RNA sequence: UUUUCCGAAGUUUCUCUUAGGAUAGCUAAGAUUUUUGUAAUUAGUUUUAUUAGGUAAAGCAAAUGAUUAGAGGCAUCGGAAACGCAAUGUUUUCGACCUAUUCUCAAACUUUAAAUGAGUAAGGUCUAGCGGUUUUUUAAUUAAAGCGGUGGAAGUAAUAAUUUUCUUUAGUGGGCCAUUUUUGGUAAGCAGAACUGGCGAUGAGGGAUGCUCCUAACGUAUAGUUAAGGUGCUAAAAUGUUUGCUUAUUUGAUACCAUAAAAGGUGUUAGUUCAUUUAAACAGCAGGACGGUGGUCAUGGAAGUUGAAAUUCGCUAAGGAGUGUGUAACAACUCACCUGCCGAAUGAAGUAGCCCUAAAAAUGGAUAGCGCUUAAGCAAAUUACCGAUACUAUACUAUUUGUUUAAAUAAAAAUUAAAUGAACAAAUAAGUAGGAAGACGUAUACAUUAUUAAGAAUCAUUUAACGUAAGUUAAUGUUAAAUGGUGUAUAGUGCAGAU
Numbered sequence: 001u002u003u004u005c006c007g008a009a010g011u012u013u014c015u016c017u018u019a020g021g022a023u024a025g026c027u028a029a030g031a032u033u034u035u036u037g038u039a040a041u042u043a044g045u046u047u048u049a050u051u052a053g054g055u056a057a058a059g060c061a062a063a064u065g066a067u068u069a070g071a072g073g074c075a076u077c078g079g080a081a082a083c084g085c086a087a088u089g090u091u092u093u094c095g096a097c098c099u100a101u102u103c104u105c106a107a108a109c110u111u112u113a114a115a116u117g118a119g120u121a122a123g124g125u126c127u128a129g130c131g132g133u134u135u136u137u138u139a140a141u142u143a144a145a146g147c148g149g150u151g152g153a154a155g156u157a158a159u160a161a162u163u164u165u166c167u168u169u170a171g172u173g174g175g176c177c178a179u180u181u182u183u184g185g186u187a188a189g190c191a192g193a194a195c196u197g198g199c200g201a202u203g204a205g206g207g208a209u210g211c212u213c214c215u216a217a218c219g220u221a222u223a224g225u226u227a228a229g230g231u232g233c234u235a236a237a238a239u240g241u242u243u244g245c246u247u248a249u250u251u252g253a254u255a256c257c258a259u260a261a262a263a264g265g266u267g268u269u270a271g272u273u274c275a276u277u278u279a280a281a282c283a284g285c286a287g288g289a290c291g292g293u294g295g296u297c298a299u300g301g302a303a304g305u306u307g308a309a310a311u312u313c314g315c316u317a318a319g320g321a322g323u324g325u326g327u328a329a330c331a332a333c334u335c336a337c338c339u340g341c342c343g344a345a346u347g348a349a350g351u352a353g354c355c356c357u358a359a360a361a362a363u364g365g366a367u368a369g370c371g372c373u374u375a376a377g378c379a380a381a382u383u384a385c386c387g388a389u390a391c392u393a394u395a396c397u398a399u400u401u402g403u404u405u406a407a408a409u410a411a412a413a414a415u416u417a418a419a420u421g422a423a424c425a426a427a428u429a430a431g432u433a434g435g436a437a438g439a440c441g442u443a444u445a446c447a448u449u450a451u452u453a454a455g456a457a458u459c460a461u462u463u464a465a466c467g468u469a470a471g472u473u474a475a476u477g478u479u480a481a482a483u484g485g486u487g488u489a490u491a492g493u494g495c496a497g498a499u
Base pairs, nucleotide, nucleotide: 001439002438003437004436005435006434011024013022014021015020028168029167030166031165045124046123047122048121049120050119051118057112058110059109064106065105066104069101071099072098073097076096077095078094079093080092081091083089126152127151128150130148131147133145134144175199176198177197178196180194181193182192183191184190204215205214206213219396220395221394222393223392225390229386230385231384238383240382243379244378245377263357264356265355267354268353269352270351272349273348274347275346276345284341285340286339287338288337290314291313292312296308297307315319320335324333325332397429398428399427400426401425402424403423404422405421440494442491443490444489445488446487447486448485449484450483451482459477464473465472466471
Dot-bracket structure: ((((((....(.(((....))).)...((((.............(((((((.....(((....(((..(.(((..((((((.(.....).))))))))).)..)))..)).).....))))))).(((.((.((.........)).)).)))............))))......((((.(((((.....))))).))))....(((......)))...(((((.(...(((......(.(..(((.................(((.((((.(((((.......(((((.(((...((.........))...)))(...)(...((......)).).)))))...))))).)))))))...................)))..)))))...).)))))(((((((((...............)))))))))....))))))(.((((((((((.......(....(((....)))...)....))))))))))..).....